[Rfam]
RNA sequence: UGAGGCUCAAUGGAGCUCUCCCCACUCCAUGCCUGAAAGGAGUUCGAUGGUAGACCAUGGCUGCUAGUUCAUGAAUACCCUUGGGUGCGCAGAAUUAGCAACGGUGCAGGCGAAGUUGCGCAGGCUAAGGGUCUGCAUGACCUAGGAGACGUGGUUACCCUGACCCUUUUUGUAUUGGAGUGAAGGGAGCUCGAUGGUCUUUCACC
Numbered sequence: 001u002g003a004g005g006c007u008c009a010a011u012g013g014a015g016c017u018c019u020c021c022c023c024a025c026u027c028c029a030u031g032c033c034u035g036a037a038a039g040g041a042g043u044u045c046g047a048u049g050g051u052a053g054a055c056c057a058u059g060g061c062u063g064c065u066a067g068u069u070c071a072u073g074a075a076u077a078c079c080c081u082u083g084g085g086u087g088c089g090c091a092g093a094a095u096u097a098g099c100a101a102c103g104g105u106g107c108a109g110g111c112g113a114a115g116u117u118g119c120g121c122a123g124g125c126u127a128a129g130g131g132u133c134u135g136c137a138u139g140a141c142c143u144a145g146g147a148g149a150c151g152u153g154g155u156u157a158c159c160c161u162g163a164c165c166c167u168u169u170u171u172g173u174a175u176u177g178g179a180g181u182g183a184a185g186g187g188a189g190c191u192c193g194a195u196g197g198u199c200u201u202u203c204a205c206c
Stems, first nucleotide, its partner, number of pairs: 013192008023182007036169001061148002064145003070139004078131005